[Rfam]
This 189-nucleotide RNA from Paenibacillus silvestris belongs to the Rfam family "glmS glucosamine-6-phosphate activated ribozyme aptamer". NCBI's taxonomy places the organism under Bacteria, Bacillota, Bacilli, Paenibacillaceae, Paenibacillus. This entry contains a glucosamine-6-phosphate activated ribozyme that is found in the mRNA for GlmS. GlmS is an enzyme that uses fructose-6-phosphate and glutamine to generate glucosamine-6-phosphate. The ribozyme catalyses self cleavage of the glmS mRNA that is thought to regulate GlmS activity.

RNA sequence: CGGUUACAAAUAGCGCCAGAACUCGCAGGCGGAACGGAAUGUAGUAAAAGCUACUACUACGCAGGUGAGUUGACGAGGUGAAGGUGUUCGAAACAUUCGGCGGGGACCUUCCGGCAUUAGGAAUGCCGUUAAGUUGGAGAGCCAAAAAGUCUGGGCGACCGGGCUGACAAGUAUCCAACGUCCGUUUUU
Numbered sequence: 001c002g003g004u005u006a007c008a009a010a011u012a013g014c015g016c017c018a019g020a021a022c023u024c025g026c027a028g029g030c031g032g033a034a035c036g037g038a039a040u041g042u043a044g045u046a047a048a049a050g051c052u053a054c055u056a057c058u059a060c061g062c063a064g065g066u067g068a069g070u071u072g073a074c075g076a077g078g079u080g081a082a083g084g085u086g087u088u089c090g091a092a093a094c095a096u097u098c099g100g101c102g103g104g105g106a107c108c109u110u111c112c113g114g115c116a117u118u119a120g121g122a123a124u125g126c127c128g129u130u131a132a133g134u135u136g137g138a139g140a141g142c143c144a145a146a147a148a149g150u151c152u153g154g155g156c157g158a159c160c161g162g163g164c165u166g167a168c169a170a171g172u173a174u175c176c177a178a179c180g181u182c183c184g185u186u187u188u189u
Stems, first nucleotide, its partner, number of pairs: 020071007029062003080111005088100004112128006133179006148165007